[Rfam]
The family of this 35-nucleotide sequence from Arcicella aurantiaca is "DUF805b RNA". NCBI's taxonomy places the organism under Bacteria, Pseudomonadati, Cytophagia, Flectobacillaceae, Arcicella.

RNA sequence: UCUGGGGGUGCCGAAAACCAGCAAGAGAGUAGGCA
Number, nucleotide and partner (000 for none) at each position: 001u000002c021003u020004g019005g018006g000007g000008g000009u000010g034011c033012c032013g000014a000015a000016a000017a000018c005019c004020a003021g002022c000023a000024a000025g000026a000027g000028a000029g000030u000031a000032g012033g011034c010035a000